[Rfam]
RNA sequence: GCCGAAGUGGCGGAAUUGGCAGACGCGUCGGUCUCAAAAACCGAUAUCUGUGAGGAUGUGCCGGUUCGACCCCGGCCUUCGGCA
Numbered sequence: 001g002c003c004g005a006a007g008u009g010g011c012g013g014a015a016u017u018g019g020c021a022g023a024c025g026c027g028u029c030g031g032u033c034u035c036a037a038a039a040a041c042c043g044a045u046a047u048c049u050g051u052g053a054g055g056a057u058g059u060g061c062c063g064g065u066u067c068g069a070c071c072c073c074g075g076c077c078u079u080c081g082g083c084a
Base pairs, nucleotide, nucleotide: 001083002082003081004080005079006078007077010026011025012024028044029043030042031041032040060076061075062074063073064072
The family of this 84-nucleotide sequence from Dehalobacter sp. 12DCB1 is "tRNA". The family's RNA type in Rfam is transfer RNA. NCBI's taxonomy places the organism under Bacteria, Bacillota, Clostridia, Eubacteriales, Dehalobacter. Transfer RNA (tRNA) molecules are approximately 80 nucleotides in length. The match comes from Rfam's covariance-model search (57 bits).